[Rfam]
RNA sequence: GCGUCCUGCCUCGUGAUCGUCUUCUCACCCUUCGCGACGGCAGGCGGAAAAAGGGGAACCCCCGUGAGGACGUGACUCACGGGGGUUCUUC
Numbered sequence: 001g002c003g004u005c006c007u008g009c010c011u012c013g014u015g016a017u018c019g020u021c022u023u024c025u026c027a028c029c030c031u032u033c034g035c036g037a038c039g040g041c042a043g044g045c046g047g048a049a050a051a052a053g054g055g056g057a058a059c060c061c062c063c064g065u066g067a068g069g070a071c072g073u074g075a076c077u078c079a080c081g082g083g084g085g086u087u088c089u090u091c
Stems, first nucleotide, its partner, number of pairs: 002046002005044006013035004019029001053091016
Dot-bracket structure: .((.((((((..((((..(.........)..))))...))))))))......((((((((((((((((.......))))))))))))))))

The record is a 91-nucleotide sequence from Streptomyces sp. ISL-12, which matches "sodF sRNA" in Rfam. For this family Rfam cites "Inverse regulation of Fe- and Ni-containing SOD genes by a Fur family regulator Nur through small RNA processed from 3'UTR of the sodF mRNA" (Kim et al., Nucleic Acids Res, 2014). The source organism's lineage runs through Bacteria, Actinomycetota, Actinomycetes, Kitasatosporales and Streptomyces. Gene Ontology terms of the family: regulation of mRNA stability, mRNA binding and negative regulation of translation. The match comes from Rfam's covariance-model search (89 bits).